Actinobacteria sRNA Ms_IGR-5: a 163-nucleotide RNA sequence from Luteimicrobium xylanilyticum.
[Rfam]
RNA sequence: ACAUGGGAAAGGAGGUGAUCCGACCAGUGAAGACUCUUCGGACGCAUGAGGUGAUCGCGCGCUAGCUCGCGCGGCACGUCUCCGGACGAGCUGGCGAAACCAACGCCAUCACCGGGCCCGUGGGUGUCGCGGAAUCGUCCACCGCGACAGGCGGUCCUCCCUU
Numbered sequence: 001a002c003a004u005g006g007g008a009a010a011g012g013a014g015g016u017g018a019u020c021c022g023a024c025c026a027g028u029g030a031a032g033a034c035u036c037u038u039c040g041g042a043c044g045c046a047u048g049a050g051g052u053g054a055u056c057g058c059g060c061g062c063u064a065g066c067u068c069g070c071g072c073g074g075c076a077c078g079u080c081u082c083c084g085g086a087c088g089a090g091c092u093g094g095c096g097a098a099a100c101c102a103a104c105g106c107c108a109u110c111a112c113c114g115g116g117c118c119c120g121u122g123g124g125u126g127u128c129g130c131g132g133a134a135u136c137g138u139c140c141a142c143c144g145c146g147a148c149a150g151g152c153g154g155u156c157c158u159c160c161c162u163u
Stems, first nucleotide, its partner, number of pairs: 015058005060096010072084003120163001122161003126157001128146005

The organism belongs to Luteimicrobium, within Bacteria.
The family's RNA type in Rfam is small RNA.
A search with the family's covariance model found it, with a score of 70 bits.